RNA: mir-1905 microRNA precursor family
Organism: Sinocyclocheilus anshuiensis
RNA sequence: GCGUCUGCUGCUGGAUGCGCUUGAUGGUGGCCCCCUUGGGGCCGACCACUAGUCCCACCACCCGAUAGGGCAC
Numbered sequence: 001g002c003g004u005c006u007g008c009u010g011c012u013g014g015a016u017g018c019g020c021u022u023g024a025u026g027g028u029g030g031c032c033c034c035c036u037u038g039g040g041g042c043c044g045a046c047c048a049c050u051a052g053u054c055c056c057a058c059c060a061c062c063c064g065a066u067a068g069g070g071c072a073c
Stems, first nucleotide, its partner, number of pairs: 004069004009064002012060003017055001019053003023049001025048004030043001032041003